RNA sequence: GAGUUACUCCUCCCUGGCGAGGUUAAGUGCAUGGAUGCACGGAGCCGCAGCGAAAGCGAGUCUGAACAGGGCGCACAGUCAGGGGGGGUAGACGCGAAACUUUGUGAUCUACCCUUGGGCAGGAUGAAGCUGUGGUAACACACAGUGGAGGUCCGAACCAGUUUCCGUUGAAAAGGAUUUGGAUGACCUGAGGGUAGGGGUGAAAGGCCAAUCAAACUGAGAAAUAGCUCGUA
Numbered sequence: 001g002a003g004u005u006a007c008u009c010c011u012c013c014c015u016g017g018c019g020a021g022g023u024u025a026a027g028u029g030c031a032u033g034g035a036u037g038c039a040c041g042g043a044g045c046c047g048c049a050g051c052g053a054a055a056g057c058g059a060g061u062c063u064g065a066a067c068a069g070g071g072c073g074c075a076c077a078g079u080c081a082g083g084g085g086g087g088g089u090a091g092a093c094g095c096g097a098a099a100c101u102u103u104g105u106g107a108u109c110u111a112c113c114c115u116u117g118g119g120c121a122g123g124a125u126g127a128a129g130c131u132g133u134g135g136u137a138a139c140a141c142a143c144a145g146u147g148g149a150g151g152u153c154c155g156a157a158c159c160a161g162u163u164u165c166c167g168u169u170g171a172a173a174a175g176g177a178u179u180u181g182g183a184u185g186a187c188c189u190g191a192g193g194g195u196a197g198g199g200g201u202g203a204a205a206g207g208c209c210a211a212u213c214a215a216a217c218u219g220a221g222a223a224a225u226a227g228c229u230c231g232u233a
Base pairs, nucleotide, nucleotide: 005090006089007088009087010086011085012084013083014082015081016080017079018078021046022045023044024043027040028039029038050057051056060072061071062070063069093231094230096228100221101220102219104217105216109197110196111195112194113193114192115191116190117189118188119187120185122154123153124152125151129146130145131144132143133142134141158182159181160180164177165176166175199209200208201207